RNA: XIST RNA A repeat
Organism: Nannospalax galili
RNA sequence: UUGUCCAUCGGGGCCUCGGAUACCUGCGUUUACUUUC
Numbered sequence: 001u002u003g004u005c006c007a008u009c010g011g012g013g014c015c016u017c018g019g020a021u022a023c024c025u026g027c028g029u030u031u032a033c034u035u036u037c
Base pairs, nucleotide, nucleotide: 003014004013005012006011017026018025019024